[Rfam]
Notes:
A member of the RNA family "Selenocysteine insertion sequence 1" from Oreotrochilus melanogaster, 67 nucleotides long. The family's RNA type in Rfam is cis-regulatory element.
RNA sequence: UGCAGACCCAUGAAGGCCUGUACUGAAGACAGCCUGCUGUUAGUACAGACUGGAUGCUUCUCCUGCA
Numbered sequence: 001u002g003c004a005g006a007c008c009c010a011u012g013a014a015g016g017c018c019u020g021u022a023c024u025g026a027a028g029a030c031a032g033c034c035u036g037c038u039g040u041u042a043g044u045a046c047a048g049a050c051u052g053g054a055u056g057c058u059u060c061u062c063c064u065g066c067a
Stems, first nucleotide, its partner, number of pairs: 001067005015051002018048007030039003